[Rfam]
RNA sequence: GUCGGUCCUCGGUAGUGGCCUUUCGGCAGGAGACGACUCCGCCGUGGGGCUUCGAUCGAUGGCCGCC
Numbered sequence: 001g002u003c004g005g006u007c008c009u010c011g012g013u014a015g016u017g018g019c020c021u022u023u024c025g026g027c028a029g030g031a032g033a034c035g036a037c038u039c040c041g042c043c044g045u046g047g048g049g050c051u052u053c054g055a056u057c058g059a060u061g062g063c064c065g066c067c
Base pairs, nucleotide, nucleotide: 001067003065004064005063006062007061009059010058011057012056013055017051018050019049021047022046024044025043026042027041029040030039031038
Annotation
A member of the RNA family "Actino-pnp RNA" from Nocardia macrotermitis, 67 nucleotides long. The base pairs follow the family's consensus structure, which is taken from published work.